[Rfam]
RNA sequence: UACCGCUCUCCAGCUCCGUGCGAGAUGUGAAUACUCGAUGCGGCGUUUCAAUGAGCGAAAAGUAAUGAAACUCGACGAUUAUUGAUAUUUCUUGUGGAAUAUUGAUCACUAAGAAUUUCGAACAUUU
Numbered sequence: 001u002a003c004c005g006c007u008c009u010c011c012a013g014c015u016c017c018g019u020g021c022g023a024g025a026u027g028u029g030a031a032u033a034c035u036c037g038a039u040g041c042g043g044c045g046u047u048u049c050a051a052u053g054a055g056c057g058a059a060a061a062g063u064a065a066u067g068a069a070a071c072u073c074g075a076c077g078a079u080u081a082u083u084g085a086u087a088u089u090u091c092u093u094g095u096g097g098a099a100u101a102u103u104g105a106u107c108a109c110u111a112a113g114a115a116u117u118u119c120g121a122a123c124a125u126u127u
Stems, first nucleotide, its partner, number of pairs: 004057005012047003016043005025035001081106004086101006